Shown here is a 76-nucleotide sequence from Pipistrellus kuhlii, a member of the family "mir-9229 microRNA precursor family". The family's consensus secondary structure was predicted with RNAalifold. The organism belongs to Pipistrellus, within Eukaryota. Its family is annotated with RISC complex and miRNA-mediated post-transcriptional gene silencing in the Gene Ontology.

[Rfam]
RNA sequence: GAUACAACCUUAUAGAGCAGGACUUGCUUCAGUGGGGUUUUGAUGUUCACUGAGUCUGCCCCUUGAGUGUGUGGCU
Numbered sequence: 001g002a003u004a005c006a007a008c009c010u011u012a013u014a015g016a017g018c019a020g021g022a023c024u025u026g027c028u029u030c031a032g033u034g035g036g037g038u039u040u041u042g043a044u045g046u047u048c049a050c051u052g053a054g055u056c057u058g059c060c061c062c063u064u065g066a067g068u069g070u071g072u073g074g075c076u
Base pairs, nucleotide, nucleotide: 001075003073004072005071006070009067010066011065012064015061017059018058019057021056022055023054029053030052031051032050033049034048035047036046037044038043